[Rfam]
Rfam assigns this 90-nucleotide sequence from Plasmodium gonderi to the family "small nucleolar RNA snoR19".
RNA sequence: AAAAAUGAUGAUUUUAUGCGCAGAAAUAAAAAUCGUACUACAACGUAGAAUGAUGAUACUUAAGGUCAUCCUUGAACUGAUUUUUUUUUU
Number, nucleotide and partner (000 for none) at each position: 001a000002a087003a086004a085005a084006u000007g000008a000009u000010g000011a000012u000013u000014u000015u000016a000017u000018g000019c000020g000021c000022a000023g000024a000025a000026a000027u000028a000029a000030a000031a000032a000033u000034c000035g000036u000037a000038c000039u000040a000041c000042a000043a000044c000045g000046u000047a000048g000049a000050a000051u000052g000053a000054u000055g000056a000057u000058a000059c000060u000061u000062a000063a000064g000065g000066u000067c000068a000069u000070c000071c000072u000073u000074g000075a000076a000077c000078u000079g000080a000081u000082u000083u000084u005085u004086u003087u002088u000089u000090u000

The match comes from Rfam's covariance-model search (89 bits). Rfam classes the family as a C/D-box small nucleolar RNA. The base pairs follow the family's consensus structure.